Rfam assigns this 99-nucleotide sequence from Rhododendron simsii to the family "Small nucleolar RNA Z157/R69/R10". Taxonomically the source falls in Rhododendron (Eukaryota, Streptophyta, Euphyllophyta, Mesangiospermae). On this family, see Chen et al., Nucleic Acids Res 2003: "The high diversity of snoRNAs in plants: identification and comparative study of 120 snoRNA genes from Oryza sativa". Pairs were carried over by alignment from the consensus structure, which was predicted with PFOLD. The family's RNA type in Rfam is C/D-box small nucleolar RNA. Clan: SNORD52 clan.
RNA sequence: GGGUGUGCGGUGAUGAGGCAAUUUAUGUGGACUAGAGUUUCUGAUCUGGGUCUGGAUCCCAGAACCUGACGACUAACCCUUGGCUGUCUGAGCACUCUC
Numbered sequence: 001g002g003g004u005g006u007g008c009g010g011u012g013a014u015g016a017g018g019c020a021a022u023u024u025a026u027g028u029g030g031a032c033u034a035g036a037g038u039u040u041c042u043g044a045u046c047u048g049g050g051u052c053u054g055g056a057u058c059c060c061a062g063a064a065c066c067u068g069a070c071g072a073c074u075a076a077c078c079c080u081u082g083g084c085u086g087u088c089u090g091a092g093c094a095c096u097c098u099c
Stems, first nucleotide, its partner, number of pairs: 001099003005095004038071001040069002045064001046062005